[Rfam]
RNA: Purine riboswitch aptamer
Organism: Pullulanibacillus pueri
RNA sequence: UGAUUACAAAAUAAUAUCCUCUGUAUAACCUCAGAAUAGGGCUUGAGGGUCUCUACCAGGAACCGUAAAAUCCUGAUUACAGAAAAUGAAUCUUUCUUU
Numbered sequence: 001u002g003a004u005u006a007c008a009a010a011a012u013a014a015u016a017u018c019c020u021c022u023g024u025a026u027a028a029c030c031u032c033a034g035a036a037u038a039g040g041g042c043u044u045g046a047g048g049g050u051c052u053c054u055a056c057c058a059g060g061a062a063c064c065g066u067a068a069a070a071u072c073c074u075g076a077u078u079a080c081a082g083a084a085a086a087u088g089a090a091u092c093u094u095u096c097u098u099u
Stems, first nucleotide, its partner, number of pairs: 020083006029048005034042001057075005